RNA: FMN riboswitch aptamer (RFN element)
RNA sequence: AUAGACCUUCGGGGCAGAGUGAGGCUGGUCGCAACCAGAAGUCGAUCGGCCAAUUCUCGACCGGCGGUGGGGGCGAUGUCCGUUAGCCAAUGCGGUAUCGCCCGGCCCGUGACCCGCGUAAGCGGUGGAUCCGGUGACGGCCAGCAGGCCCAGUCCGGAGCCGACGGUAUAGUCCGGAUGGGAGAAGGUAACG
Numbered sequence: 001a002u003a004g005a006c007c008u009u010c011g012g013g014g015c016a017g018a019g020u021g022a023g024g025c026u027g028g029u030c031g032c033a034a035c036c037a038g039a040a041g042u043c044g045a046u047c048g049g050c051c052a053a054u055u056c057u058c059g060a061c062c063g064g065c066g067g068u069g070g071g072g073g074c075g076a077u078g079u080c081c082g083u084u085a086g087c088c089a090a091u092g093c094g095g096u097a098u099c100g101c102c103c104g105g106c107c108c109g110u111g112a113c114c115c116g117c118g119u120a121a122g123c124g125g126u127g128g129a130u131c132c133g134g135u136g137a138c139g140g141c142c143a144g145c146a147g148g149c150c151c152a153g154u155c156c157g158g159a160g161c162c163g164a165c166g167g168u169a170u171a172g173u174c175c176g177g178a179u180g181g182g183a184g185a186a187g188g189u190a191a192c193g
Stems, first nucleotide, its partner, number of pairs: 005189006017058003060173002062163002064110004114125002130159005165176003